[Rfam]
RNA sequence: CAGGUUUGAAAUCAAGUUACUGAUUUUUAAACAACCUUCCCUGAGUGAUGUAACGAAUUGCUGUGUGUAGUCUUUGCCCAUCCCCUGUGAUGGGCUUUUUUUUGU
Dot-bracket structure: (((................))).........((........))...............(((...)))........(((((((......)))))))..........
The family of this 105-nucleotide sequence from Erwinia sp. Leaf53 is "RprA RNA". The family's consensus secondary structure was predicted with PFOLD. The literature on the family includes a 2001 paper in Mol Microbiol by Majdalani et al., "Regulation of RpoS by a novel small RNA: the characterization of RprA".